Overview: Rfam assigns this 114-nucleotide RNA from Xenopus laevis to the family "Potassium channel RNA editing signal". The base pairs follow the family's consensus structure, which is taken from published work. Taxonomically the source falls in Xenopus (Eukaryota, Eumetazoa, Teleostomi, Amphibia).

RNA sequence: GUUGGGUAUGGAGACAUGAGGCCAGUGACCGUUGGGGGUAAAAUAGUGGGGUCUUUGUGUGCCAUUGCUGGUGUGCUGACCAUUGCUUUGCCAGUCCCUGUUAUUGUCUCUAAC
Numbered sequence: 001g002u003u004g005g006g007u008a009u010g011g012a013g014a015c016a017u018g019a020g021g022c023c024a025g026u027g028a029c030c031g032u033u034g035g036g037g038g039u040a041a042a043a044u045a046g047u048g049g050g051g052u053c054u055u056u057g058u059g060u061g062c063c064a065u066u067g068c069u070g071g072u073g074u075g076c077u078g079a080c081c082a083u084u085g086c087u088u089u090g091c092c093a094g095u096c097c098c099u100g101u102u103a104u105u106g107u108c109u110c111u112a113a114c
Stems, first nucleotide, its partner, number of pairs: 001114002004111002008107004013102004018097001021095002037077004049063002